The record is a 94-nucleotide RNA from Amnimonas aquatica, which matches "t44 RNA" in Rfam.
Pairs were carried over by alignment from the consensus structure, which was predicted with LocARNA.
About the family: This family consists of a number of bacterial RNA genes of between 135 and 170 bases in length. The t44 gene has been identified in several species of enteric bacteria but homologs have also been identified in Pseudomonas and Coxiella species. The t44 gene is found between the map and rpsB genes in all species in the full alignment apart from Shigella flexneri. The function of this RNA is unknown.
The literature on the family includes a 2002 paper in Nucleic Acids Res by Tjaden et al., "Transcriptome analysis of Escherichia coli using high-density oligonucleotide probe arrays".
It scores 67 bits against the family's covariance model.
RNA sequence: GGCGAUUAACCCUGAAUCCGCACAUCGGCCGUCACAGCCACCGGGUGCCCGUUGAGAAAGACGGGUUGGUGUCUGGGGCCGAUGGAGGCCAAAC
Numbered sequence: 001g002g003c004g005a006u007u008a009a010c011c012c013u014g015a016a017u018c019c020g021c022a023c024a025u026c027g028g029c030c031g032u033c034a035c036a037g038c039c040a041c042c043g044g045g046u047g048c049c050c051g052u053u054g055a056g057a058a059a060g061a062c063g064g065g066u067u068g069g070u071g072u073c074u075g076g077g078g079c080c081g082a083u084g085g086a087g088g089c090c091a092a093a094c
Stems, first nucleotide, its partner, number of pairs: 023084008035075003039071005047066005